Shown here is a 94-nucleotide RNA sequence, a member of the family "dinG RNA". Rfam's curators put it in the seed alignment.
[Rfam]
RNA sequence: AAUGGUACUCCCUCAAGAAAACUGAGGCCGAGCAGUGCGGAGGCGCAAUUCGGGGAAGCAUCGUGCAGGUUGGGAUAGACCUGCGGGAGCUUUC
Dot-bracket structure: ..........(((((.......)))))(((((................)))))((((((..(...(((((........)))))...).))))))
By type it is a small RNA.